[Rfam]
RNA sequence: AGGGUCUGGGAAAAGGCUGCUGUGUGGCUGGGCCCUUGGUGACACAGCCUUGUACCAGCCAGCCUGAUCUCUUGCCCUAGAAUAAUCCUACGCAGACUCCUUUCUAGAGUUUGCUCUGUGCAGUAGCAGGUGUGAGCAUUCUUGCAGCAUUUUGAUGGUCAUGUAUGAUACUGCAUACAAAA
Numbered sequence: 001a002g003g004g005u006c007u008g009g010g011a012a013a014a015g016g017c018u019g020c021u022g023u024g025u026g027g028c029u030g031g032g033c034c035c036u037u038g039g040u041g042a043c044a045c046a047g048c049c050u051u052g053u054a055c056c057a058g059c060c061a062g063c064c065u066g067a068u069c070u071c072u073u074g075c076c077c078u079a080g081a082a083u084a085a086u087c088c089u090a091c092g093c094a095g096a097c098u099c100c101u102u103u104c105u106a107g108a109g110u111u112u113g114c115u116c117u118g119u120g121c122a123g124u125a126g127c128a129g130g131u132g133u134g135a136g137c138a139u140u141c142u143u144g145c146a147g148c149a150u151u152u153u154g155a156u157g158g159u160c161a162u163g164u165a166u167g168a169u170a171c172u173g174c175a176u177a178c179a180a181a182a
Stems, first nucleotide, its partner, number of pairs: 003077002006074001008072003015064004019059004024055002026049005032043001034041001088109002092104001094102002117177009127167002133161003137157004144151001

Shown here is a 182-nucleotide sequence from Terrapene triunguis, a member of the family "Small Cajal body specific RNA 16". Rfam's curators write: scaRNAs are a specific class of small nuclear RNAs which localise to the Cajal bodies and guide the modification of RNA polymerase II transcribed spliceosomal RNAs U1, U2, U4, U5 and U12. Rfam classes the family as a small Cajal body RNA.